[Rfam]
RNA sequence: GUAUAUUCUCAGGGCGGGGUGAAAUUCCCCACCGGCGGUAACCUGGCCUGUAUCAGGAAGCCCGCGAGCGCUCCCCCCAAGGCUUGAAUGAGAAAGCUUAAAUUGAAAAGUUUAAACCAGGGGAGGUCAGCAGAUCCGGUUAAAUUCCGGAGCCGACGGUUAAAGUCCGGAUGGAAGAGAAUGCGU
Numbered sequence: 001g002u003a004u005a006u007u008c009u010c011a012g013g014g015c016g017g018g019g020u021g022a023a024a025u026u027c028c029c030c031a032c033c034g035g036c037g038g039u040a041a042c043c044u045g046g047c048c049u050g051u052a053u054c055a056g057g058a059a060g061c062c063c064g065c066g067a068g069c070g071c072u073c074c075c076c077c078c079a080a081g082g083c084u085u086g087a088a089u090g091a092g093a094a095a096g097c098u099u100a101a102a103u104u105g106a107a108a109a110g111u112u113u114a115a116a117c118c119a120g121g122g123g124a125g126g127u128c129a130g131c132a133g134a135u136c137c138g139g140u141u142a143a144a145u146u147c148c149g150g151a152g153c154c155g156a157c158g159g160u161u162a163a164a165g166u167c168c169g170g171a172u173g174g175a176a177g178a179g180a181a182u183g184c185g186u
Stems, first nucleotide, its partner, number of pairs: 004183007017029003031166002033155002035065004060153002068131002135151005157169003
Dot-bracket structure: ...(((((((......(((.......))).[[((((((.....................[[))))..((............................................................))...(((((.......)))))]])).(((.....]]))).......)))))))...

Background: Shown here is a 186-nucleotide RNA from Desulfobacula toluolica, a member of the family "FMN riboswitch aptamer (RFN element)". Gene Ontology term of the family: FMN binding. A search with the family's covariance model found it, with a score of 113 bits. The source organism's lineage runs through Bacteria, Pseudomonadati, Desulfobacteraceae, Desulfobacula and Desulfobacula toluolica.